[Rfam]
RNA sequence: CGGUCCGCUGUGUGGAAUGUCCGGCUGCGCUCUUGUGCUCGCCCGAUACCCUGAUCAGGUGCGCCGUCUCUCCGGGGCGGCCGCAUAGCCGACAGCCGUCGCAUCCUAGGGAGAACCCUUCAUG
Numbered sequence: 001c002g003g004u005c006c007g008c009u010g011u012g013u014g015g016a017a018u019g020u021c022c023g024g025c026u027g028c029g030c031u032c033u034u035g036u037g038c039u040c041g042c043c044c045g046a047u048a049c050c051c052u053g054a055u056c057a058g059g060u061g062c063g064c065c066g067u068c069u070c071u072c073c074g075g076g077g078c079g080g081c082c083g084c085a086u087a088g089c090c091g092a093c094a095g096c097c098g099u100c101g102c103a104u105c106c107u108a109g110g111g112a113g114a115a116c117c118c119u120u121c122a123u124g
Base pairs, nucleotide, nucleotide: 060085061084062083063082066078067077068076069075088102089101091100092099093098